[Rfam]
RNA sequence: GGAAUGCGGACGGUCCCCUCCUCCUCCCUGGGAUCGUCGGCACGCGGUAAUGGCUUCCUCCUCCCUGCCAUUGCCGCACCCUAUACGCGGCCCCUCCUCCUCCCUGGGCCAGCGUUGCGC
Numbered sequence: 001g002g003a004a005u006g007c008g009g010a011c012g013g014u015c016c017c018c019u020c021c022u023c024c025u026c027c028c029u030g031g032g033a034u035c036g037u038c039g040g041c042a043c044g045c046g047g048u049a050a051u052g053g054c055u056u057c058c059u060c061c062u063c064c065c066u067g068c069c070a071u072u073g074c075c076g077c078a079c080c081c082u083a084u085a086c087g088c089g090g091c092c093c094c095u096c097c098u099c100c101u102c103c104c105u106g107g108g109c110c111a112g113c114g115u116u117g118c119g120c
Stems, first nucleotide, its partner, number of pairs: 007040001009038001011036007045076010085115004089110005
Shown here is a 120-nucleotide RNA from Paracoccus thiocyanatus, a member of the family "Alphaproteobacterial ar14". By type it is a small RNA. Gene Ontology term of the family: biological process involved in symbiotic interaction. Smr14C2 was renamed NfeR1 (Nodule Formation Efficiency RNA) highly expressed in salt stress and during the symbiotic interaction on legume roots. The literature on the family includes a 2012 paper in RNA Biol by del Val et al., "A survey of sRNA families in alpha-proteobacteria". The family has 118 seed sequences and 784 matches in Rfam 15.1.